[Rfam]
RNA sequence: AGUUUUGUGCAGCGGCAGUAUCGUAGCCAAUGAGGUUUAUCCGAGGCACGAUUAUUGCUAAUUGAAAACUUUUCCCAAUACCCCGCCAUGACGACUUGUCGGCUCUGGCAAUUUUUGACAGUCUCUACGGAGA
Numbered sequence: 001a002g003u004u005u006u007g008u009g010c011a012g013c014g015g016c017a018g019u020a021u022c023g024u025a026g027c028c029a030a031u032g033a034g035g036u037u038u039a040u041c042c043g044a045g046g047c048a049c050g051a052u053u054a055u056u057g058c059u060a061a062u063u064g065a066a067a068a069c070u071u072u073u074c075c076c077a078a079u080a081c082c083c084c085g086c087c088a089u090g091a092c093g094a095c096u097u098g099u100c101g102g103c104u105c106u107g108g109c110a111a112u113u114u115u116u117g118a119c120a121g122u123c124u125c126u127a128c129g130g131a132g133a
Stems, first nucleotide, its partner, number of pairs: 020052005026047003034042002085109003090103001092101003122133004
RNA: U4 spliceosomal RNA